[Rfam]
Annotation:
Rfam assigns this 102-nucleotide RNA sequence from Iodobacter ciconiae to the family "TPP riboswitch aptamer (THI element)". The organism belongs to Iodobacter, within Bacteria. Rfam's curators write: Vitamin B(1) in its active form thiamin pyrophosphate (TPP) is an essential coenzyme that is synthesised by coupling of pyrimidine and thiazole moieties in bacteria.
Nucleotides: 102
Base pairs, nucleotide, nucleotide: 006090007089008088009087010086011052012051013050014049016046017039018038019037020036021035022034023033024032058083059082060081061080064077065076066075067074
Number, partner (000 for none) and nucleotide at each position: 001000u002000u003000u004000u005000a006090u007089c008088g009087c010086u011052a012051g013050g014049g015000g016046u017039u018038c019037u020036g021035c022034g023033u024032c025000a026000a027000u028000a029000u030000c031000a032024g033023g034022c035021g036020c037019g038018g039017a040000u041000g042000a043000g044000a045000u046016a047000u048000a049014c050013c051012c052011u053000c054000u055000g056000a057000a058083c059082c060081u061080g062000a063000u064077u065076c066075g067074g068000u069000u070000a071000a072000u073000a074067c075066c076065g077064g078000c079000g080061u081060a082059g083058g084000g085000a086010a087009g088008c089007g090006a091000g092000c093000u094000a095000g096000a097000u098000a099000c100000u101000u102000c